[Rfam]
RNA sequence: UCACAAGUUCAAGGCCAUAGCAGAAGCACUCAGGGUGCAGCUUGUCAGAUUUCACUGAAUCUGUGACUUCUGCU
Numbered sequence: 001u002c003a004c005a006a007g008u009u010c011a012a013g014g015c016c017a018u019a020g021c022a023g024a025a026g027c028a029c030u031c032a033g034g035g036u037g038c039a040g041c042u043u044g045u046c047a048g049a050u051u052u053c054a055c056u057g058a059a060u061c062u063g064u065g066a067c068u069u070c071u072g073c074u
Base pairs, nucleotide, nucleotide: 014041015040019074020073021072022071023070024069025068026038027037028036046063047062048061049060050059051058052057

This 74-nucleotide RNA sequence from Crocodylus porosus belongs to the Rfam family "Mammalian CPEB3 ribozyme". The match comes from Rfam's covariance-model search (48 bits).